RNA sequence: CCUUGAGAUAAUGUAGCAGCACAUAAUGGUUUGUGGGUUUUGAAAAGGUGCAGGCCAUAUUGUGCUGCUUCAAAAAUACAAGG
Numbered sequence: 001c002c003u004u005g006a007g008a009u010a011a012u013g014u015a016g017c018a019g020c021a022c023a024u025a026a027u028g029g030u031u032u033g034u035g036g037g038u039u040u041u042g043a044a045a046a047g048g049u050g051c052a053g054g055c056c057a058u059a060u061u062g063u064g065c066u067g068c069u070u071c072a073a074a075a076a077u078a079c080a081a082g083g
Base pairs, nucleotide, nucleotide: 001083002082003081004080005079013071015069016068017067018066019065020064021063022062023061026058027057028056029055030054031053032052033051034050035049
Overview
Shown here is an 83-nucleotide sequence from Sphenodon punctatus, a member of the family "mir-15 microRNA precursor family". The source organism's lineage runs through Eukaryota, Opisthokonta, Vertebrata, Sphenodontidae and Sphenodon. For this family Rfam cites "Identification of novel genes coding for small expressed RNAs" (Lagos-Quintana et al., Science, 2001). Gene Ontology terms of the family: RISC complex and miRNA-mediated post-transcriptional gene silencing. About the family: This family represents the related mir-15a and mir-15b sequences. In humans miR-15a and miR-16 are clustered within 0.5 kb at 13q14. This region has been shown to be deleted in more than half of B cell chronic lymphocytic leukaemias (CLL).